[Rfam]
RNA sequence: UGGCAUGAUGAACUUGACUCAGGAAUCUCGUUCGGCUGAACGCUGGUGUUGAGGACUCGGACUCUGAUUUGU
Number, nucleotide and partner (000 for none) at each position: 001u000002g000003g000004c000005a000006u000007g000008a000009u000010g000011a000012a000013c000014u000015u000016g000017a000018c000019u000020c000021a000022g000023g000024a000025a000026u054027c053028u052029c051030g050031u000032u000033c048034g047035g000036c045037u000038g000039a000040a000041c000042g000043c000044u000045g036046g000047u034048g033049u000050u030051g029052a028053g027054g026055a000056c000057u000058c000059g000060g000061a000062c000063u000064c000065u000066g000067a000068u000069u000070u000071g000072u000
RNA: Small nucleolar RNA SNORD30
Organism: Anseranas semipalmata